[Rfam]
RNA sequence: AUGAAGGCCGUAGGAGAGACCCUAUGGGCGCCGAAGGAGCAAGCCAGUUUUACUCUUGCUGUGAAAACUGUUAAACUCUCAGGCAAAAGUACUGUGGCCGGACG
Numbered sequence: 001a002u003g004a005a006g007g008c009c010g011u012a013g014g015a016g017a018g019a020c021c022c023u024a025u026g027g028g029c030g031c032c033g034a035a036g037g038a039g040c041a042a043g044c045c046a047g048u049u050u051u052a053c054u055c056u057u058g059c060u061g062u063g064a065a066a067a068c069u070g071u072u073a074a075a076c077u078c079u080c081a082g083g084c085a086a087a088a089g090u091a092c093u094g095u096g097g098c099c100g101g102a103c104g
Stems, first nucleotide, its partner, number of pairs: 006099008020028003030084003033080002037078003043071002
Shown here is a 104-nucleotide RNA from Desulfotomaculum nigrificans, a member of the family "Glycine riboswitch aptamer". NCBI's taxonomy places the organism under Bacteria, Eubacteriales, Desulfotomaculaceae, Desulfotomaculum, Desulfotomaculum nigrificans. The pairing is the family consensus, mapped onto this sequence.